A member of the RNA family "c-di-AMP riboswitch aptamer (ydaO/yuaA leader)" from Paraconexibacter algicola, 150 nucleotides long. A search with the family's covariance model found it, with a score of 59 bits. The organism belongs to Paraconexibacter, within Bacteria.
RNA sequence: CAGCCGAGCUCGCCCCACGCCAGUGGAGCGGGACGGGGGACCCAACGGACCGAGCGAUCGGUCGGGGGCGAAUCCCGGGAACCACCCGGGUAGCGCAGCACUCAGCGCGAGCCCGACAGCUAACCCCGUAGGCGUCGAGAGCAAAGGGUU
Dot-bracket structure: ..(((...(((((..............)))))((((((....(.....................)(((.....((((.........))))..((((........))))...))).........)))))).))).................